[Rfam]
A member of the RNA family "Group II catalytic intron D1-D4-6" from Acidisarcina polymorpha, 219 nucleotides long. A search with the family's covariance model found it, with a score of 169 bits. The literature on the family includes a 2001 paper in Trends Genet by Bonen and Vogel, "The ins and outs of group II introns". Its family is annotated with Group II intron splicing in the Gene Ontology. NCBI's taxonomy places the organism under Bacteria, Acidobacteriota, Terriglobia, Acidobacteriaceae, Acidisarcina.
RNA sequence: CAAGCCUCCUACGAGAAAGGAGUAGCGAACCGCUCGGCCCCGAGUUUUGCGCUGCACACCGCGAGGUGUUCAGCGAAGCGUAAACAGGGGUACAGGUGGGCUGGGUAUUGAGCUUCGAAAAGAUGCAAUCAGGACCCUGACGCUUUUGCAUUGGCGGAAGGCUACACGGGCGGGGGCGAUAUCGCGAGUUCCCGUCCGGUCCUGCGUAGUCGUAGACCC
Numbered sequence: 001c002a003a004g005c006c007u008c009c010u011a012c013g014a015g016a017a018a019g020g021a022g023u024a025g026c027g028a029a030c031c032g033c034u035c036g037g038c039c040c041c042g043a044g045u046u047u048u049g050c051g052c053u054g055c056a057c058a059c060c061g062c063g064a065g066g067u068g069u070u071c072a073g074c075g076a077a078g079c080g081u082a083a084a085c086a087g088g089g090g091u092a093c094a095g096g097u098g099g100g101c102u103g104g105g106u107a108u109u110g111a112g113c114u115u116c117g118a119a120a121a122g123a124u125g126c127a128a129u130c131a132g133g134a135c136c137c138u139g140a141c142g143c144u145u146u147u148g149c150a151u152u153g154g155c156g157g158a159a160g161g162c163u164a165c166a167c168g169g170g171c172g173g174g175g176g177c178g179a180u181a182u183c184g185c186g187a188g189u190u191c192c193c194g195u196c197c198g199g200u201c202c203u204g205c206g207u208a209g210u211c212g213u214a215g216a217c218c219c
Base pairs, nucleotide, nucleotide: 012036013035014034015033019031020030023187025185026184038090039089040088041087044085045084046083047082048080049079050075051074052073053072054071056069057068058067059066060065110211112210113209114208116206117205130204131203132202133201134200135199137161138160141156142155143154144153167198168197169196170195171194172193173192174191175190176189177188